RNA sequence: AAUAAAAUAUUAGCGCCAGAGCUUAAGUUAUUCAGUUAAUUAGCUUAAGUUGACGAGGUUGGGGUUUAUCGAAUAUUUCGGCGGAUGGCUCCACGGUAUCGUACUACCGUUAGCGAUUGGCAAAACUGGGAAGUAAUUCUCAGCACAAAUCCAAUCAUGUGCAAAAC
Numbered sequence: 001a002a003u004a005a006a007a008u009a010u011u012a013g014c015g016c017c018a019g020a021g022c023u024u025a026a027g028u029u030a031u032u033c034a035g036u037u038a039a040u041u042a043g044c045u046u047a048a049g050u051u052g053a054c055g056a057g058g059u060u061g062g063g064g065u066u067u068a069u070c071g072a073a074u075a076u077u078u079c080g081g082c083g084g085a086u087g088g089c090u091c092c093a094c095g096g097u098a099u100c101g102u103a104c105u106a107c108c109g110u111u112a113g114c115g116a117u118u119g120g121c122a123a124a125a126c127u128g129g130g131a132a133g134u135a136a137u138u139c140u141c142a143g144c145a146c147a148a149a150u151c152c153a154a155u156c157a158u159g160u161g162c163a164a165a166a167c
Stems, first nucleotide, its partner, number of pairs: 020051008029042001060093005069081004094109005115156005126143007
Rfam assigns this 167-nucleotide sequence from Clostridium polyendosporum to the family "glmS glucosamine-6-phosphate activated ribozyme aptamer".
Pairs were carried over by alignment from the consensus structure, which is taken from published work.
NCBI's taxonomy places the organism under Bacteria, Bacillota, Clostridia, Clostridiaceae, Clostridium.
The match comes from Rfam's covariance-model search (106 bits).
The literature on the family includes a 2004 paper in Nature by Winkler et al., "Control of gene expression by a natural metabolite-responsive ribozyme".
By type it is a riboswitch.
Gene Ontology terms of the family: catalytic activity and regulation of gene expression.